[Rfam]
RNA sequence: GGCAGGGGCUUGCGCAGGCUUUCGGUACUUCGGAAGAGCUCCCGGAGUCAGACGUAUUCCAAGGGGGAUACGGAACCGUUACGGAGUCGCGCACUGAGCGAUUCCACAAUCGCAAGCC
Number, nucleotide and partner (000 for none) at each position: 001g000002g000003c000004a000005g000006g000007g118008g117009c116010u115011u114012g113013c112014g111015c000016a000017g000018g000019c000020u000021u000022u000023c078024g077025g076026u075027a048028c047029u046030u045031c044032g043033g042034a000035a000036g000037a000038g000039c000040u000041c000042c033043c032044g031045g030046a029047g028048u027049c000050a000051g000052a000053c072054g071055u070056a069057u068058u067059c066060c000061a000062a000063g000064g000065g000066g059067g058068a057069u056070a055071c054072g053073g000074a000075a026076c025077c024078g023079u000080u000081a000082c000083g105084g104085a103086g000087u101088c100089g099090c098091g000092c000093a000094c000095u000096g000097a000098g090099c089100g088101a087102u000103u085104c084105c083106a000107c000108a000109a000110u000111c014112g013113c012114a011115a010116g009117c008118c007